[Rfam]
Nucleotides: 090
Base pairs, nucleotide, nucleotide: 002089003088004087005086006085010084012082013081014080015079016078018076019075021073022072023071024070025069027068029066030065031064032063033062035061036060037059038058039057040056
Number, partner (000 for none) and nucleotide at each position: 001000g002089c003088u004087c005086a006085g007000c008000u009000u010084g011000g012082u013081g014080g015079u016078g017000u018076g019075g020000a021073a022072g023071a024070c025069u026000a027068g028000u029066g030065a031064u032063u033062u034000u035061g036060u037059u038058g039057u040056u041000g042000g043000u044000g045000u046000u047000a048000u049000u050000a051000a052000u053000g054000c055000a056040g057039a058038c059037a060036a061035c062033a063032a064031g065030u066029c067000c068027u069025a070024g071023u072022c073021u074000c075019c076018c077000u078016u079015a080014u081013u082012g083000c084010c085006c086005u087004g088003g089002g090000a

mir-7 microRNA precursor family: a 90-nucleotide RNA sequence from Ameiurus melas. A search with the family's covariance model found it, with a score of 58 bits. About the family: This family represents the microRNA (miRNA) precursor mir-7.